[Rfam]
Shown here is a 59-nucleotide sequence from Phycicoccus endophyticus, a member of the family "msiK RNA". Pairs were carried over by alignment from the consensus structure, which is taken from published work. By type it is a cis-regulatory element. Lineage of the source: Bacteria > Actinomycetota > Actinomycetes > Intrasporangiaceae > Phycicoccus.

RNA sequence: GCUCCAUCCCCUUUACAACGGAUCGUCCGGCACGUUCCUGCCGGUGAAGGAAGGCAAUG
Number, nucleotide and partner (000 for none) at each position: 001g000002c000003u000004c000005c000006a000007u000008c000009c000010c050011c049012u048013u047014u046015a045016c000017a000018a000019c000020g000021g000022a000023u000024c000025g000026u000027c044028c043029g042030g041031c040032a039033c000034g000035u000036u000037c000038c000039u032040g031041c030042c029043g028044g027045u015046g014047a013048a012049g011050g010051a000052a000053g000054g000055c000056a000057a000058u000059g000